Nucleotides: 056
Base pairs, nucleotide, nucleotide: 016027017026018025030055031054032053033052034051035050036049037048038047039046
Number, partner (000 for none) and nucleotide at each position: 001000u002000u003000a004000a005000a006000c007000a008000g009000a010000u011000u012000a013000u014000u015000u016027g017026c018025c019000u020000g021000a022000a023000a024000a025018g026017g027016c028000a029000u030055g031054g032053c033052u034051g035050g036049u037048g038047a039046u040000u041000u042000a043000a044000a045000c046039g047038u048037c049036a050035c051034c052033g053032g054031c055030c056000u